[Rfam]
RNA: CpoB/ybgF ICR thermometer
RNA sequence: UCAAAUCUCUAUCGUAUCUUACGGUAAAGAGAAACCGGCUGUACUGGGACAUGACGAAUCGGCUUACGCUAAAAACCGUCGUGCCGUACUGGUAUACUAAGAGAAUUGCAUGAGCGGUAACUUCAGACAUUAUCUGUUA
Numbered sequence: 001u002c003a004a005a006u007c008u009c010u011a012u013c014g015u016a017u018c019u020u021a022c023g024g025u026a027a028a029g030a031g032a033a034a035c036c037g038g039c040u041g042u043a044c045u046g047g048g049a050c051a052u053g054a055c056g057a058a059u060c061g062g063c064u065u066a067c068g069c070u071a072a073a074a075a076c077c078g079u080c081g082u083g084c085c086g087u088a089c090u091g092g093u094a095u096a097c098u099a100a101g102a103g104a105a106u107u108g109c110a111u112g113a114g115c116g117g118u119a120a121c122u123u124c125a126g127a128c129a130u131u132a133u134c135u136g137u138u139a
Stems, first nucleotide, its partner, number of pairs: 001047003007041001014035002017032004054138001057135001062130001065127001068124001075118002078115001079113006086106002089103002